The family of this 76-nucleotide RNA from Rhamnella rubrinervis is "Small nucleolar RNA R12". For this family Rfam cites "The high diversity of snoRNAs in plants: identification and comparative study of 120 snoRNA genes from Oryza sativa" (Chen et al., Nucleic Acids Res, 2003). Rfam 15.1 lists 992 matches to the family in 220 species. About the family: snoR12 is a C/D box small nucleolar RNA, which acts as a methylation guide for 25S ribosomal RNA in plants. snoR12 has been alternatively named snoZ44 in Arabidopsis and snoZ131 in rice. The family's RNA type in Rfam is C/D-box small nucleolar RNA. Gene Ontology terms of the family: nucleolus and RNA processing. It scores 68 bits against the family's covariance model.
RNA sequence: UUUUGGAUGAUGAAAAAAAUCGGACGGAUUCCCAAUGAUAUUUUAUAUGAUAUCAAACCAGCUACUUCUGAUCAAA
Numbered sequence: 001u002u003u004u005g006g007a008u009g010a011u012g013a014a015a016a017a018a019a020u021c022g023g024a025c026g027g028a029u030u031c032c033c034a035a036u037g038a039u040a041u042u043u044u045a046u047a048u049g050a051u052a053u054c055a056a057a058c059c060a061g062c063u064a065c066u067u068c069u070g071a072u073c074a075a076a
Stems, first nucleotide, its partner, number of pairs: 001076003005072001